Overview:
SAM (S-adenosyl methionine) riboswitch aptamer: a 110-nucleotide sequence from Kocuria coralli. The literature on the family includes a 2008 paper in RNA by Weinberg et al., "The aptamer core of SAM-IV riboswitches mimics the ligand-binding site of SAM-I riboswitches". The family is grouped with related families in Rfam's "SAM clan". From the family's description: SAM-IV is a mRNA element that regulates gene expression via direct sensing of S-adenosylmethionine (SAM or AdoMet). A search with the family's covariance model found it, with a score of 51 bits.

Nucleotides: 110
Base pairs, nucleotide, nucleotide: 001077002076003075004074009040012038013037014036015035016034017033022031023030041064042063043062046060047059048058080099081098084097085096086095088093
Number, partner (000 for none) and nucleotide at each position: 001077c002076u003075u004074c005000a006000c007000g008000a009040g010000a011000u012038g013037c014036g015035u016034u017033c018000g019000c020000c021000a022031a023030g024000c025000u026000c027000c028000g029000a030023c031022u032000u033017g034016a035015g036014c037013g038012c039000a040009c041064a042063c043062c044000a045000a046060c047059c048058c049000c050000a051000u052000g053000u054000u055000c056000a057000c058048g059047g060046g061000u062043g063042g064041u065000u066000c067000g068000g069000a070000u071000g072000a073000c074004g075003a076002a077001g078000c079000g080099g081098c082000c083000u084097g085096c086095u087000a088093c089000a090000c091000c092000c093088g094000c095086a096085g097084c098081g099080c100000a101000c102000g103000a104000a105000c106000a107000g108000c109000u110000c